RNA sequence: AGGCAUAUUCUAGAUGACACAACUAACUGUGUGUCUUAAUUGAAAAAUGUGGCUAGAUAAGGAACAGGUUGUGCUUUCCUCACUGUAUAGUUAGUUGCAGUGGUGACAAUGAGACCUGUAACAGGU
Numbered sequence: 001a002g003g004c005a006u007a008u009u010c011u012a013g014a015u016g017a018c019a020c021a022a023c024u025a026a027c028u029g030u031g032u033g034u035c036u037u038a039a040u041u042g043a044a045a046a047a048u049g050u051g052g053c054u055a056g057a058u059a060a061g062g063a064a065c066a067g068g069u070u071g072u073g074c075u076u077u078c079c080u081c082a083c084u085g086u087a088u089a090g091u092u093a094g095u096u097g098c099a100g101u102g103g104u105g106a107c108a109a110u111g112a113g114a115c116c117u118g119u120a121a122c123a124g125g126u
Base pairs, nucleotide, nucleotide: 002053004051006049007048008047016035017034018033019032020031021030064119065118066117067116068115078105080103081102082101083100
The family of this 126-nucleotide sequence from Strigops habroptila is "Small nucleolar RNA SNORA1". Lineage of the source: Eukaryota > Gnathostomata > Sauropsida > Archelosauria > Strigops. The base pairs follow the family's consensus structure, which was predicted with PFOLD. From the family's description: ACA1 is a member of the H/ACA class of snoRNA that guide the sites of modification of uridines to pseudouridines. Gene Ontology terms of the family: nucleolus and RNA processing.